[Rfam]
RNA sequence: CUGCUCGUCAGAGUGGUUGUGAUGUGUGUAUUAGCUAUUCAUAUCACAGCCAGCUUUGAUGAGCGGAG
Numbered sequence: 001c002u003g004c005u006c007g008u009c010a011g012a013g014u015g016g017u018u019g020u021g022a023u024g025u026g027u028g029u030a031u032u033a034g035c036u037a038u039u040c041a042u043a044u045c046a047c048a049g050c051c052a053g054c055u056u057u058g059a060u061g062a063g064c065g066g067a068g
Base pairs, nucleotide, nucleotide: 005062006061007060008059009058010057011056012055013054014052015051016050017049018048019047020046021045022044025043026042027041